Notes:
This 267-nucleotide RNA from Nakaseomyces glabratus belongs to the Rfam family "Small nucleolar RNA snR43". A search with the family's covariance model found it, with a score of 87 bits. Its family is annotated with RNA processing and nucleolus in the Gene Ontology.
RNA sequence: GUCUCCUGUUUCUGCCCCAUCUUCCCAGCUUGGUGUUUUGAAGCCCAAGCGAAUGGAUUACUGGGUUCUGGUGAUGGAGAAGAGAAAGCCAGGGAAUGUGGACGUUGGCGCCUUUUGAUACAUCUAGCUGGCGUCUGUUCCCUGGACCGUGUUUGUAUUGCGCUGCCAGCCGUGCGCCUUCGCCAUUUUGGUGAGGUGCCGGUUGAACCAUGGGUAGUUGUUGGGCAUUCCCAAACCAACACCGCUCAGCAGCGCUGAACUACAUUU
Dot-bracket structure: ..((((.........(((((..(((.............................)))..).))))..........)))).........((((((((((...((((((((.................)))))))).)))))))))).....((((.....(((((((..................................................................................))))))).)))).......
Numbered sequence: 001g002u003c004u005c006c007u008g009u010u011u012c013u014g015c016c017c018c019a020u021c022u023u024c025c026c027a028g029c030u031u032g033g034u035g036u037u038u039u040g041a042a043g044c045c046c047a048a049g050c051g052a053a054u055g056g057a058u059u060a061c062u063g064g065g066u067u068c069u070g071g072u073g074a075u076g077g078a079g080a081a082g083a084g085a086a087a088g089c090c091a092g093g094g095a096a097u098g099u100g101g102a103c104g105u106u107g108g109c110g111c112c113u114u115u116u117g118a119u120a121c122a123u124c125u126a127g128c129u130g131g132c133g134u135c136u137g138u139u140c141c142c143u144g145g146a147c148c149g150u151g152u153u154u155g156u157a158u159u160g161c162g163c164u165g166c167c168a169g170c171c172g173u174g175c176g177c178c179u180u181c182g183c184c185a186u187u188u189u190g191g192u193g194a195g196g197u198g199c200c201g202g203u204u205g206a207a208c209c210a211u212g213g214g215u216a217g218u219u220g221u222u223g224g225g226c227a228u229u230c231c232c233a234a235a236c237c238a239a240c241a242c243c244g245c246u247c248a249g250c251a252g253c254g255c256u257g258a259a260c261u262a263c264a265u266u267u
Stems, first nucleotide, its partner, number of pairs: 003079004016065004020060001023057003089145010102134008151260004160255007